[Rfam]
RNA: MIR1507 microRNA precursor family
Organism: Lupinus angustifolius
RNA sequence: CAUUGUUUGGUAGAGAUGUUUGGAGCGAGAGAUGGGAAAAUGGGUUUUUGUUAUUACACUUUUCUCUCCCUCGUUCCAUACAUCAUCUAGCGAACAUGGU
Dot-bracket structure: ....(((((.(((((((((.(((((((((.((.(((((((...................))))))))).))))))))).))))).)))).))))).....